A member of the RNA family "MIR4371 microRNA precursor family" from Glycine max, 157 nucleotides long.
RNA sequence: CUAUUAAGUAAUGACGUAGCGGACGGAGUGUCACAUCAUCAUGUCUUAUCACUAACACACAUUGUCAUGUCAUCACCUUUAAUGGCGUAACAAUGAUGUGUCAGUGAUUAGGCUUGACGGCAUGACACUUCGUCUGCUACAUUAUCACUUAACUGAA
Numbered sequence: 001c002u003a004u005u006a007a008g009u010a011a012u013g014a015c016g017u018a019g020c021g022g023a024c025g026g027a028g029u030g031u032c033a034c035a036u037c038a039u040c041a042u043g044u045c046u047u048a049u050c051a052c053u054a055a056c057a058c059a060c061a062u063u064g065u066c067a068u069g070u071c072a073u074c075a076c077c078u079u080u081a082a083u084g085g086c087g088u089a090a091c092a093a094u095g096a097u098g099u100g101u102c103a104g105u106g107a108u109u110a111g112g113c114u115u116g117a118c119g120g121c122a123u124g125a126c127a128c129u130u131c132g133u134c135u136g137c138u139a140c141a142u143u144a145u146c147a148c149u150u151a152a153c154u155g156a157a
Base pairs, nucleotide, nucleotide: 001155004152005151006150007149008148009147011145012144013143014142016140017139018138019137020136021135022134023133024132025131026130027129028128029127030126031125032124033123036120037119039117040116041115043113044112045111046110048108049107050106051105052104055101056100057099058098069086070085071084072083073082